This 331-nucleotide RNA sequence from Chryseobacterium hagamense belongs to the Rfam family "Bacterial RNase P class A".
[Rfam]
RNA sequence: CGAGAAAAUCGGCCUGUUGAUUCUUAUUUCGGUAAGGGUAGGAAAGUCCGGACACCAUAGGGCAGCAAAGCGGAUAACCUCCGUCACCCGCGAGGGUAGGACCAGUGCAACAGAAAGAAUGUACAGUUCGGCUGUAGUGAAACCAGGUAAACUCUUUGUGGUGCAAUGAUAAGUAUAUCUGUUCUUUUCAGCAAUGGAAAUAGGGGCGGCCCGUCCUGAAAGCCGAGGGGUAAUCAGCUCAAGUGGUGCAGCAAUGUACCACGCAGAUAAAUAACAGGCAUCCUGUUUUCGUAAUGGGAUACAAAAUCCGGCUUAUAGAUUUUCUCGUGAU
Numbered sequence: 001c002g003a004g005a006a007a008a009u010c011g012g013c014c015u016g017u018u019g020a021u022u023c024u025u026a027u028u029u030c031g032g033u034a035a036g037g038g039u040a041g042g043a044a045a046g047u048c049c050g051g052a053c054a055c056c057a058u059a060g061g062g063c064a065g066c067a068a069a070g071c072g073g074a075u076a077a078c079c080u081c082c083g084u085c086a087c088c089c090g091c092g093a094g095g096g097u098a099g100g101a102c103c104a105g106u107g108c109a110a111c112a113g114a115a116a117g118a119a120u121g122u123a124c125a126g127u128u129c130g131g132c133u134g135u136a137g138u139g140a141a142a143c144c145a146g147g148u149a150a151a152c153u154c155u156u157u158g159u160g161g162u163g164c165a166a167u168g169a170u171a172a173g174u175a176u177a178u179c180u181g182u183u184c185u186u187u188u189c190a191g192c193a194a195u196g197g198a199a200a201u202a203g204g205g206g207c208g209g210c211c212c213g214u215c216c217u218g219a220a221a222g223c224c225g226a227g228g229g230g231u232a233a234u235c236a237g238c239u240c241a242a243g244u245g246g247u248g249c250a251g252c253a254a255u256g257u258a259c260c261a262c263g264c265a266g267a268u269a270a271a272u273a274a275c276a277g278g279c280a281u282c283c284u285g286u287u288u289u290c291g292u293a294a295u296g297g298g299a300u301a302c303a304a305a306a307u308c309c310g311g312c313u314u315a316u317a318g319a320u321u322u323u324c325u326c327g328u329g330a331u
Base pairs, nucleotide, nucleotide: 001327002326003325004324005323006322007321008320009319010318011316012279013278014277015276016275017274018273020039021038022037023036024035025034026033027032044314045313046312048311049310050309051308052307053163054162055161056160060212061211062210063209065159066158067157068156069155070084071083072082073081074080085099086097087096088095089094100154101153105152106151107148108147122136123135124134125133126132127131167236168235169234170233178226179225181223182222203217204216205215206214207213243262244261245260246259247258248257249256250255
The family's consensus secondary structure is taken from published work.